[Rfam]
RNA sequence: UUCUUAUCCAGAGAGACGGAGGGACUGGCCCGAUGAAGUCUCGGCAACCUAAUGCGGUUAGGUGCCAAUUCCAGAGAGCAAUGCUCAAAGAUGAGGA
Numbered sequence: 001u002u003c004u005u006a007u008c009c010a011g012a013g014a015g016a017c018g019g020a021g022g023g024a025c026u027g028g029c030c031c032g033a034u035g036a037a038g039u040c041u042c043g044g045c046a047a048c049c050u051a052a053u054g055c056g057g058u059u060a061g062g063u064g065c066c067a068a069u070u071c072c073a074g075a076g077a078g079c080a081a082u083g084c085u086c087a088a089a090g091a092u093g094a095g096g097a
Base pairs, nucleotide, nucleotide: 001097002096003095004094005093006092007091008090013042014041015040016039017038021031022030023029025074026073027072028071043066044065045064046063048062049061050060051059052058053057070089076086077085078084079083

The record is a 97-nucleotide sequence from Aneurinibacillus danicus, which matches "SAM riboswitch aptamer (S box leader)" in Rfam. The family's consensus secondary structure is taken from published work.